[Rfam]
RNA sequence: CCAAUCCCAUCCGGCACAGCGGGUCCGCAGCCGGAACCGAGUGUUGCGCGUGCCGCGGGUAACUGCGGGCGUCAAGCGUACACAGGGAGCAUGCAGGCCGCGUGAUUGAGCCUCGAAAGCGUCACUGCGUGGGAGCCGACGCCGUCGGAACAGGCGGAAGGCCGUGCUGCCGUGCCGAGAGGACCGGGCACGGCGGUCCCACCGGGGUCUGAGAGCG
Numbered sequence: 001c002c003a004a005u006c007c008c009a010u011c012c013g014g015c016a017c018a019g020c021g022g023g024u025c026c027g028c029a030g031c032c033g034g035a036a037c038c039g040a041g042u043g044u045u046g047c048g049c050g051u052g053c054c055g056c057g058g059g060u061a062a063c064u065g066c067g068g069g070c071g072u073c074a075a076g077c078g079u080a081c082a083c084a085g086g087g088a089g090c091a092u093g094c095a096g097g098c099c100g101c102g103u104g105a106u107u108g109a110g111c112c113u114c115g116a117a118a119g120c121g122u123c124a125c126u127g128c129g130u131g132g133g134a135g136c137c138g139a140c141g142c143c144g145u146c147g148g149a150a151c152a153g154g155c156g157g158a159a160g161g162c163c164g165u166g167c168u169g170c171c172g173u174g175c176c177g178a179g180a181g182g183a184c185c186g187g188g189c190a191c192g193g194c195g196g197u198c199c200c201a202c203c204g205g206g207g208u209c210u211g212a213g214a215g216c217g
Stems, first nucleotide, its partner, number of pairs: 010035005019028002023185001037086002041083004045078002048072003053068006107211001108209001110208006129202006135162003140156004167196010
Rfam assigns this 217-nucleotide RNA sequence to the family "Group II catalytic intron D1-D4-6". Rfam's curators write: Group II introns are found in rRNA, tRNA and mRNA of organelles in fungi, plants and protists, and also in mRNA in bacteria.